[Rfam]
RNA sequence: GAAAAAUGAGGAUAUUCUGACUGCUUCCUACUAUUACAGUGAGGACCUCAGAUCCAACUCUGAUUUCACUCUGGUC
Numbered sequence: 001g002a003a004a005a006a007u008g009a010g011g012a013u014a015u016u017c018u019g020a021c022u023g024c025u026u027c028c029u030a031c032u033a034u035u036a037c038a039g040u041g042a043g044g045a046c047c048u049c050a051g052a053u054c055c056a057a058c059u060c061u062g063a064u065u066u067c068a069c070u071c072u073g074g075u076c
Base pairs, nucleotide, nucleotide: 001067002066003065004064
Dot-bracket structure: ((((...........................................................)))).........

A member of the RNA family "Small nucleolar RNA SNORD19" from Urocolius indicus, 76 nucleotides long. The family has 22 seed sequences and 1,431 matches in Rfam 15.1. The pairing is the family consensus, mapped onto this sequence. The family is grouped with related families in Rfam's "SNORD19 clan". Lineage of the source: Eukaryota > Aves > Neognathae > Telluraves > Urocolius. It is annotated as a C/D-box small nucleolar RNA.